The record is a 65-nucleotide sequence from Siminovitchia fortis, which matches "Bacillaceae-1 RNA" in Rfam.

[Rfam]
RNA sequence: GGCGACGGAGGCAGGCUCAAGCAGCGACGUCCUGUCGCUUCGCCUGCACUAGCACAUCCUGUGCG
Numbered sequence: 001g002g003c004g005a006c007g008g009a010g011g012c013a014g015g016c017u018c019a020a021g022c023a024g025c026g027a028c029g030u031c032c033u034g035u036c037g038c039u040u041c042g043c044c045u046g047c048a049c050u051a052g053c054a055c056a057u058c059c060u061g062u063g064c065g
Stems, first nucleotide, its partner, number of pairs: 011047006024038005052064004

Lineage of the source: Bacteria > Bacillati > Bacillota > Bacillaceae > Siminovitchia. By type it is a small RNA.